[Rfam]
RNA sequence: UCAUACAUAUUGGUUAUACCAAAUUAAAGUUUAGGUAAAUUGGAUAUACCAAACAAUAGCAUUAGGGGUGAAGGGCGAAAGGACGUUAGCCAUACGCCAAGUAGCACUAACCCUGAUCAUAUGCGAGAGCCCCAACCUGAGUAGAUGAGGAGGCCGUAGCAGUGAGAACACUGCAGCCAACAAGGUUCCUACUGGUAAGGAUCACCCACUAGGUAUGACCUGUAGUUGGGGGCGUGCCCAGGCCAUCCUUAAUGCAAUCGGGGGUCGGUUGCAUGAAUCCACUAGGGAGAUCUACACAGCCUGAUAGGGUAUCGGCGCCGAUGGGGAAAGGCUCUAUAAAAUGGCGUGGAUCAUAGCAC
Numbered sequence: 001u002c003a004u005a006c007a008u009a010u011u012g013g014u015u016a017u018a019c020c021a022a023a024u025u026a027a028a029g030u031u032u033a034g035g036u037a038a039a040u041u042g043g044a045u046a047u048a049c050c051a052a053a054c055a056a057u058a059g060c061a062u063u064a065g066g067g068g069u070g071a072a073g074g075g076c077g078a079a080a081g082g083a084c085g086u087u088a089g090c091c092a093u094a095c096g097c098c099a100a101g102u103a104g105c106a107c108u109a110a111c112c113c114u115g116a117u118c119a120u121a122u123g124c125g126a127g128a129g130c131c132c133c134a135a136c137c138u139g140a141g142u143a144g145a146u147g148a149g150g151a152g153g154c155c156g157u158a159g160c161a162g163u164g165a166g167a168a169c170a171c172u173g174c175a176g177c178c179a180a181c182a183a184g185g186u187u188c189c190u191a192c193u194g195g196u197a198a199g200g201a202u203c204a205c206c207c208a209c210u211a212g213g214u215a216u217g218a219c220c221u222g223u224a225g226u227u228g229g230g231g232g233c234g235u236g237c238c239c240a241g242g243c244c245a246u247c248c249u250u251a252a253u254g255c256a257a258u259c260g261g262g263g264g265u266c267g268g269u270u271g272c273a274u275g276a277a278u279c280c281a282c283u284a285g286g287g288a289g290a291u292c293u294a295c296a297c298a299g300c301c302u303g304a305u306a307g308g309g310u311a312u313c314g315g316c317g318c319c320g321a322u323g324g325g326g327a328a329a330g331g332c333u334c335u336a337u338a339a340a341a342u343g344g345c346g347u348g349g350a351u352c353a354u355a356g357c358a359c
Stems, first nucleotide, its partner, number of pairs: 059124004068111002073108002075105002081098002084096003126335006136326002138298002141295006148249004152244004159174006177229005183221005188213004193208003230239003252274010278288003299310004313349001315347006
Shown here is a 359-nucleotide sequence, a member of the family "Pestivirus internal ribosome entry site (IRES) including 5'UTR SLI".
Rfam describes the family as follows. This family represents the internal ribosome entry site (IRES) of the the pestiviruses.
Clan: IRES1 clan.
Gene Ontology term of the family: ribosome binding.
The pairing is the family consensus, mapped onto this sequence.